[Rfam]
RNA sequence: GCGUGCCGAUGAUGAUGCAAAAGCAUCGGUGAAUUCUGGAUGAAUGUGCUCGCGCACGACCAGUGUGCGGCUCUGGUGAUAUCCACUGCGUAAUACUGUCUCUGAGGCACGC
Numbered sequence: 001g002c003g004u005g006c007c008g009a010u011g012a013u014g015a016u017g018c019a020a021a022a023g024c025a026u027c028g029g030u031g032a033a034u035u036c037u038g039g040a041u042g043a044a045u046g047u048g049c050u051c052g053c054g055c056a057c058g059a060c061c062a063g064u065g066u067g068c069g070g071c072u073c074u075g076g077u078g079a080u081a082u083c084c085a086c087u088g089c090g091u092a093a094u095a096c097u098g099u100c101u102c103u104g105a106g107g108c109a110c111g112c
Stems, first nucleotide, its partner, number of pairs: 002111006
The family of this 112-nucleotide RNA from Triticum aestivum is "Small nucleolar RNA Z188". On this family, see Chen et al., Nucleic Acids Res 2003: "The high diversity of snoRNAs in plants: identification and comparative study of 120 snoRNA genes from Oryza sativa". Rfam classes the family as a C/D-box small nucleolar RNA.